[Rfam]
RNA sequence: GCAGAAAAGGGCAAACCUGCAGCGAUGCAGGGGCGCAAAGCCUAUGGGUCUGCCAUGCAAGCGGCAGAUAGCCAGGCUGCCUGUC
Numbered sequence: 001g002c003a004g005a006a007a008a009g010g011g012c013a014a015a016c017c018u019g020c021a022g023c024g025a026u027g028c029a030g031g032g033g034c035g036c037a038a039a040g041c042c043u044a045u046g047g048g049u050c051u052g053c054c055a056u057g058c059a060a061g062c063g064g065c066a067g068a069u070a071g072c073c074a075g076g077c078u079g080c081c082u083g084u085c
Base pairs, nucleotide, nucleotide: 001085003082004081011036012035016031017030018029019028020027021026034071039078040077041076042075045074046073047072048069049068050067051066052065053064054063
About this RNA
A member of the RNA family "c-di-GMP-I-GGC riboswitch aptamer" from bacterium HR15, 85 nucleotides long. The family has 40 seed sequences and 1,298 matches in Rfam 15.1.